[Rfam]
RNA: caulobacter sRNA CC2171
Organism: Methylobacterium sp. Leaf93
RNA sequence: CAACGAACGAAAGGAGGUGAUCCAGUGUCUCAUUGCCUAAAUCAGCCGCUUACCUCGGCUUACCGGACCUGGAACGUCGCCUCCGGCGCGCACGCUUAGCGCGUUAGAGGACCCCUCACCGGGUUCGGCCGAACGGACAAGCGGUUCGGCAAUGGAAGGGCCGCCCUGAUGGGGCGGCCCU
Numbered sequence: 001c002a003a004c005g006a007a008c009g010a011a012a013g014g015a016g017g018u019g020a021u022c023c024a025g026u027g028u029c030u031c032a033u034u035g036c037c038u039a040a041a042u043c044a045g046c047c048g049c050u051u052a053c054c055u056c057g058g059c060u061u062a063c064c065g066g067a068c069c070u071g072g073a074a075c076g077u078c079g080c081c082u083c084c085g086g087c088g089c090g091c092a093c094g095c096u097u098a099g100c101g102c103g104u105u106a107g108a109g110g111a112c113c114c115c116u117c118a119c120c121g122g123g124u125u126c127g128g129c130c131g132a133a134c135g136g137a138c139a140a141g142c143g144g145u146u147c148g149g150c151a152a153u154g155g156a157a158g159g160g161c162c163g164c165c166c167u168g169a170u171g172g173g174g175c176g177g178c179c180c181u
Stems, first nucleotide, its partner, number of pairs: 016023002031154007044060005085114002087110001089109001091107001092104004119144003157181011